[Rfam]
RNA sequence: UUGUAUUCUUUUGGCCUCUGCUGUUCUAAUUGUGGGGUCUUUAGCAACAAUACAUAAAAUGAAAGCCAUUCAGCCGACGGCAGUGGUCAGACAACCAUAGGGAUGGAUCCACAAAUGACUUGACUACAGUUUCAGUUUGUUCACCGAUACCAUCUCAUAUGG
Numbered sequence: 001u002u003g004u005a006u007u008c009u010u011u012u013g014g015c016c017u018c019u020g021c022u023g024u025u026c027u028a029a030u031u032g033u034g035g036g037g038u039c040u041u042u043a044g045c046a047a048c049a050a051u052a053c054a055u056a057a058a059a060u061g062a063a064a065g066c067c068a069u070u071c072a073g074c075c076g077a078c079g080g081c082a083g084u085g086g087u088c089a090g091a092c093a094a095c096c097a098u099a100g101g102g103a104u105g106g107a108u109c110c111a112c113a114a115a116u117g118a119c120u121u122g123a124c125u126a127c128a129g130u131u132u133c134a135g136u137u138u139g140u141u142c143a144c145c146g147a148u149a150c151c152a153u154c155u156c157a158u159a160u161g162g
Stems, first nucleotide, its partner, number of pairs: 002054005009046001011044002013040002016037006023030001100156007118138001120135003